[Rfam]
RNA sequence: UGACGGGGGCCCGCACAAGCGGUGGAGCAUGUGGUUUAAUUCGAUGCAAAGCGAAGAACCUUACCAGGGCUUGACAUGCCGUGAAUCCUCUUGAAAGAGAGGGGUGCCUUCGGGAACGCGGACACAGGUGGUGCAUGGCUGUCGUCAGCUCGUGCCGUAAGGUGUUGGGUUAAGUCCCGCAACGAGCGCAACCCUCGUGUUUAGUUGCCACCAUUGAGUUUGGAACCCUGAACAGACUGCCGGUGAUAAGCCGGAGGAAGGUGGGGAUGACGUCAAGUCAUCAUGCCCCUUAUGCCCUGGGCGACACACGUGCUACAAUGGCCGGGACAAAGGGUCGCGAUCCCGCGAGGGUGAGCUAACCCCAAAAACCCGUCCUCAGUUCGGAUUGCAGGCUGCAACUCGCCUGCAUGAAGCCGGAAUCGCUAGUAAUCGCCGGUCAGCCAUACGGCGGUGAAUUCGUUCCCGGGCCUUGUACACACCGCCCGUCACACUAUGGGAGCUGGCCAUGCCCGAAGUCGUUACCUUAACCGCAAGGAGGGGGAUGCCGAAGGCGGGGCUAGUGACUGGAGUGAAGUCGUAACAAGG
Numbered sequence: 001u002g003a004c005g006g007g008g009g010c011c012c013g014c015a016c017a018a019g020c021g022g023u024g025g026a027g028c029a030u031g032u033g034g035u036u037u038a039a040u041u042c043g044a045u046g047c048a049a050a051g052c053g054a055a056g057a058a059c060c061u062u063a064c065c066a067g068g069g070c071u072u073g074a075c076a077u078g079c080c081g082u083g084a085a086u087c088c089u090c091u092u093g094a095a096a097g098a099g100a101g102g103g104g105u106g107c108c109u110u111c112g113g114g115a116a117c118g119c120g121g122a123c124a125c126a127g128g129u130g131g132u133g134c135a136u137g138g139c140u141g142u143c144g145u146c147a148g149c150u151c152g153u154g155c156c157g158u159a160a161g162g163u164g165u166u167g168g169g170u171u172a173a174g175u176c177c178c179g180c181a182a183c184g185a186g187c188g189c190a191a192c193c194c195u196c197g198u199g200u201u202u203a204g205u206u207g208c209c210a211c212c213a214u215u216g217a218g219u220u221u222g223g224a225a226c227c228c229u230g231a232a233c234a235g236a237c238u239g240c241c242g243g244u245g246a247u248a249a250g251c252c253g254g255a256g257g258a259a260g261g262u263g264g265g266g267a268u269g270a271c272g273u274c275a276a277g278u279c280a281u282c283a284u285g286c287c288c289c290u291u292a293u294g295c296c297c298u299g300g301g302c303g304a305c306a307c308a309c310g311u312g313c314u315a316c317a318a319u320g321g322c323c324g325g326g327a328c329a330a331a332g333g334g335u336c337g338c339g340a341u342c343c344c345g346c347g348a349g350g351g352u353g354a355g356c357u358a359a360c361c362c363c364a365a366a367a368a369c370c371c372g373u374c375c376u377c378a379g380u381u382c383g384g385a386u387u388g389c390a391g392g393c394u395g396c397a398a399c400u401c402g403c404c405u406g407c408a409u410g411a412a413g414c415c416g417g418a419a420u421c422g423c424u425a426g427u428a429a430u431c432g433c434c435g436g437u438c439a440g441c442c443a444u445a446c447g448g449c450g451g452u453g454a455a456u457u458c459g460u461u462c463c464c465g466g467g468c469c470u471u472g473u474a475c476a477c478a479c480c481g482c483c484c485g486u487c488a489c490a491c492u493a494u495g496g497g498a499g500c501u502g503g504c505c506a507u508g509c510c511c512g513a514a515g516u517c518g519u520u521a522c523c524u525u526a527a528c529c530g531c532a533a534g535g536a537g538g539g540g541g542a543u544g545c546c547g548a549a550g551g552c553g554g555g556g557c558u559a560g561u562g563a564c565u566g567g568a569g570u571g572a573a574g575u576c577g578u579a580a581c582a583a584g585g
Stems, first nucleotide, its partner, number of pairs: 001476002003473003007470007015460002019423005024316001026314008034305002040055004064300007127289002130287004136283002138278003141274001143272002148187006154163003166179004193266004198234007208223002213220001237257002240254005320375002323372004332363003337356002342351003382413001387408007429452007479584001481581001484577002487574001489571004494566003499561007507553004515545001517544004522539003

A member of the RNA family "Archaeal small subunit ribosomal RNA" from Musa balbisiana, 585 nucleotides of a longer RNA. Its Rfam clan is "SSU clan". The base pairs follow the family's consensus structure, which is taken from published work. Rfam links the family to the GO terms structural constituent of ribosome and ribosome. The family has 86 seed sequences and 709 matches in Rfam 15.1. The source organism's lineage runs through Eukaryota, Viridiplantae, Spermatophyta, Petrosaviidae and Musa.